Rfam assigns this 113-nucleotide sequence from Citrobacter koseri to the family "TrxA 5' UTR thermometer". Taxonomically the source falls in Citrobacter koseri (Bacteria, Pseudomonadota, Enterobacterales, Citrobacter). Rfam's curators write: Involved in protection against oxidative stress. A reference for the family is Righetti et al. (2016), "Temperature-responsive in vitro RNA structurome of Yersinia pseudotuberculosis", Proc Natl Acad Sci U S A.

RNA sequence: AACCUUUAGUUGGUUAAUGCGACAUCAACACGUCGUUGAUGAAGGCGAAACCAACACACCAGGCUUAUUCCUGUGGAGUUAUUAUGAGCGAUAAAAUUAUUCACCUGACUGAC
Numbered sequence: 001a002a003c004c005u006u007u008a009g010u011u012g013g014u015u016a017a018u019g020c021g022a023c024a025u026c027a028a029c030a031c032g033u034c035g036u037u038g039a040u041g042a043a044g045g046c047g048a049a050a051c052c053a054a055c056a057c058a059c060c061a062g063g064c065u066u067a068u069u070c071c072u073g074u075g076g077a078g079u080u081a082u083u084a085u086g087a088g089c090g091a092u093a094a095a096a097u098u099a100u101u102c103a104c105c106u107g108a109c110u111g112a113c
Stems, first nucleotide, its partner, number of pairs: 009092004014087003021080003025076003030072001032070001097112003101108002